[Rfam]
RNA sequence: CAAUAGAGGACGCAUGGUAAUGUGCACAGAAAUUGAAUUGGGUCUCUAGACCUGCCCUCUCUAAUGCCAUUUGGCUUUGAUUUGGAGGCAUAGUUUCGGAGCAAAACA
Numbered sequence: 001c002a003a004u005a006g007a008g009g010a011c012g013c014a015u016g017g018u019a020a021u022g023u024g025c026a027c028a029g030a031a032a033u034u035g036a037a038u039u040g041g042g043u044c045u046c047u048a049g050a051c052c053u054g055c056c057c058u059c060u061c062u063a064a065u066g067c068c069a070u071u072u073g074g075c076u077u078u079g080a081u082u083u084g085g086a087g088g089c090a091u092a093g094u095u096u097c098g099g100a101g102c103a104a105a106a107c108a
Base pairs, nucleotide, nucleotide: 012025013024014023015022040091042089043088044087050081052079054075055074056073

Notes
The family of this 108-nucleotide RNA from Rhododendron williamsianum is "Small nucleolar RNA snoR100". It is annotated as an H/ACA-box small nucleolar RNA. The match comes from Rfam's covariance-model search (81 bits). Taxonomically the source falls in Rhododendron (Eukaryota, Streptophyta, Embryophyta, Magnoliopsida).